[Rfam]
RNA sequence: CUAUAUAAACCCUGUAGAUCCGAAUUUGUGUAAAUAUAGCAGCAGCCACAAAUUCGCUUCUUGGGGAGUAUGUAGG
Numbered sequence: 001c002u003a004u005a006u007a008a009a010c011c012c013u014g015u016a017g018a019u020c021c022g023a024a025u026u027u028g029u030g031u032a033a034a035u036a037u038a039g040c041a042g043c044a045g046c047c048a049c050a051a052a053u054u055c056g057c058u059u060c061u062u063g064g065g066g067a068g069u070a071u072g073u074a075g076g
Stems, first nucleotide, its partner, number of pairs: 002074006010066003016061003021056010
The record is a 76-nucleotide RNA from Cottoperca gobio, which matches "mir-10 microRNA precursor family" in Rfam. On this family, see Lee and Ambros, Science 2001: "An extensive class of small RNAs in Caenorhabditis elegans".